[Rfam]
RNA: skipping-rope RNA
RNA sequence: AAAAGUAAAAGUAGAAAAAUAUCGAGCCCUACACACCCUAACGGGUUCCUGAGAGGUGGGGAAUGCCCGUCCCACUUACUUUU
Numbered sequence: 001a002a003a004a005g006u007a008a009a010a011g012u013a014g015a016a017a018a019a020u021a022u023c024g025a026g027c028c029c030u031a032c033a034c035a036c037c038c039u040a041a042c043g044g045g046u047u048c049c050u051g052a053g054a055g056g057u058g059g060g061g062a063a064u065g066c067c068c069g070u071c072c073c074a075c076u077u078a079c080u081u082u083u
Stems, first nucleotide, its partner, number of pairs: 001083008011032004023069002026066002034051001035046004056075005